Rfam assigns this 94-nucleotide sequence from Metabacillus lacus to the family "BsrC".
The 301 nucleotide sequence from Kouji Nakamura has been trimmed to a highly conserved ~85 nucleotide long core to form this family.
Taxonomically the source falls in Metabacillus (Bacteria, Bacillota, Caryophanales, Bacillaceae).
The match comes from Rfam's covariance-model search (58 bits).
The family's RNA type in Rfam is small RNA.

RNA sequence: AAAACUCAAGACAACGAAUGCCCUUCCUCUCAUUCGUCCAUGCGGCUCCUAGGCCGCGCCAAGCAAAAAUGCGAAUUGAAACUGUCAAAAAAUC
Numbered sequence: 001a002a003a004a005c006u007c008a009a010g011a012c013a014a015c016g017a018a019u020g021c022c023c024u025u026c027c028u029c030u031c032a033u034u035c036g037u038c039c040a041u042g043c044g045g046c047u048c049c050u051a052g053g054c055c056g057c058g059c060c061a062a063g064c065a066a067a068a069a070u071g072c073g074a075a076u077u078g079a080a081a082c083u084g085u086c087a088a089a090a091a092a093u094c
Base pairs, nucleotide, nucleotide: 034074035073036072039063041058042057043056044055045054046053047052